[Rfam]
RNA: Small nucleolar RNA SNORA42/SNORA80 family
Organism: Marmota marmota
RNA sequence: AUAUUUAUCAUAUGGCAGGCCUGUCCCCCUGGGUCUUUCAUAAUGUCCCAUGCCAGAGCAAACUGUGGCCCUGAACCAUUGCCUGGCCUGUGCCUAUAGGCUGCUGGCACUGAAGAGGGCUGCACAGUG
Dot-bracket structure: ((........(((((.(((((.........)).))).)))))..))...................((((((.....((...((((((((........))))))..))...))....)))))).......